[Rfam]
RNA sequence: ACCUGACUGUUGUAUAAUCAGCAGACACUAGCCAAGACAGGAGACAAUACAUG
Number, nucleotide and partner (000 for none) at each position: 001a000002c041003c040004u039005g038006a000007c024008u023009g022010u021011u020012g000013u000014a000015u000016a000017a000018u000019c000020a011021g010022c009023a008024g007025a000026c000027a000028c000029u000030a000031g000032c000033c000034a000035a000036g000037a000038c005039a004040g003041g002042a000043g000044a000045c000046a000047a000048u000049a000050c000051a000052u000053g000

The family of this 53-nucleotide RNA is "Mu-gpT-DE RNA".